[Rfam]
RNA sequence: UGCGAGAGAGGCUGGACGGCUGACGGGCCUUCGGGUCUGAGGAAAGUCUCCCCACCGCUCCGGAUACACGAACAUCUGUAAAGGAUGUCGGGCGAGAGCCCGGGCCCUGGCACAGAAACGAUAACCAUCCUCUGAAAAUGCGAUGAUGCGGAAGCUGAGAUCUCAGGGUAAAUGGAUGAAACGGCGAACCCUCGUGGGUGCAAGUUGGAAAUCGGGGAGAAGAGAAUUCCGGACUCUCCCGGUUGUUUUUGGAAACGCAUAGCCGAAUGCCGUCACUGCAAGAGUCCUCAGGACCAUUUCCUCCACUGAUGGGUGAUAGGAAAUCUUUGCAGGAACAGAAGGGAGCUUACGUGCCUCACUCGCAUAA
Numbered sequence: 001u002g003c004g005a006g007a008g009a010g011g012c013u014g015g016a017c018g019g020c021u022g023a024c025g026g027g028c029c030u031u032c033g034g035g036u037c038u039g040a041g042g043a044a045a046g047u048c049u050c051c052c053c054a055c056c057g058c059u060c061c062g063g064a065u066a067c068a069c070g071a072a073c074a075u076c077u078g079u080a081a082a083g084g085a086u087g088u089c090g091g092g093c094g095a096g097a098g099c100c101c102g103g104g105c106c107c108u109g110g111c112a113c114a115g116a117a118a119c120g121a122u123a124a125c126c127a128u129c130c131u132c133u134g135a136a137a138a139u140g141c142g143a144u145g146a147u148g149c150g151g152a153a154g155c156u157g158a159g160a161u162c163u164c165a166g167g168g169u170a171a172a173u174g175g176a177u178g179a180a181a182c183g184g185c186g187a188a189c190c191c192u193c194g195u196g197g198g199u200g201c202a203a204g205u206u207g208g209a210a211a212u213c214g215g216g217g218a219g220a221a222g223a224g225a226a227u228u229c230c231g232g233a234c235u236c237u238c239c240c241g242g243u244u245g246u247u248u249u250u251g252g253a254a255a256c257g258c259a260u261a262g263c264c265g266a267a268u269g270c271c272g273u274c275a276c277u278g279c280a281a282g283a284g285u286c287c288u289c290a291g292g293a294c295c296a297u298u299u300c301c302u303c304c305a306c307u308g309a310u311g312g313g314u315g316a317u318a319g320g321a322a323a324u325c326u327u328u329g330c331a332g333g334a335a336c337a338g339a340a341g342g343g344a345g346c347u348u349a350c351g352u353g354c355c356u357c358a359c360u361c362g363c364a365u366a367a
Base pairs, nucleotide, nucleotide: 004361005360006359008357009356010355011354012353013351014350015274016273017272018271019270020269024039025038026037027036028035044348045347046346048345049344050343051342052341053200054199055198056197067196068195069194070193071192072088073087074086075085076084089102090101091100092099093098103191104190108187110185111184125175126174127173128170130168131167132166133165134164135163148155149154204256205255209249210248211247213245214244215243
Background:
A member of the RNA family "Archaeal RNase P" from Methanosarcina barkeri, 367 nucleotides long. From the family's description: Ribonuclease P (RNase P) is a ubiquitous endoribonuclease, found in archaea, bacteria and eukarya as well as chloroplasts and mitochondria. Its best characterised activity is the generation of mature 5'-ends of tRNAs by cleaving the 5'-leader elements of precursor-tRNAs. Cellular RNase Ps are ribonucleoproteins. The sequence is in the family's curated seed alignment. Clan: RNaseP clan. By type it is a ribozyme.